Rfam assigns this 88-nucleotide sequence from Oryza meyeriana to the family "Small nucleolar RNA snoR109". A search with the family's covariance model found it, with a score of 35 bits. Taxonomically the source falls in Oryza meyeriana (Eukaryota, Embryophyta, Spermatophyta, Liliopsida). The literature on the family includes a 2002 paper in Curr Biol by Marker et al., "Experimental RNomics: identification of 140 candidates for small non-messenger RNAs in the plant Arabidopsis thaliana". Rfam links the family to the GO terms nucleolus and RNA processing.
[Rfam]
RNA sequence: AGGCUGUAGCCAAAUCAACAUGGAAGUAAAACUGGUCAGGUUGCCAAUUCAUUCCAUGGGCAUUCCGCUUACCGAACUUCCCAUAUCC
Numbered sequence: 001a002g003g004c005u006g007u008a009g010c011c012a013a014a015u016c017a018a019c020a021u022g023g024a025a026g027u028a029a030a031a032c033u034g035g036u037c038a039g040g041u042u043g044c045c046a047a048u049u050c051a052u053u054c055c056a057u058g059g060g061c062a063u064u065c066c067g068c069u070u071a072c073c074g075a076a077c078u079u080c081c082c083a084u085a086u087c088c
Stems, first nucleotide, its partner, number of pairs: 022081006034069003039065002042062004
Dot-bracket structure: .....................((((((......(((..((.((((.............)))).)).)))......)))))).......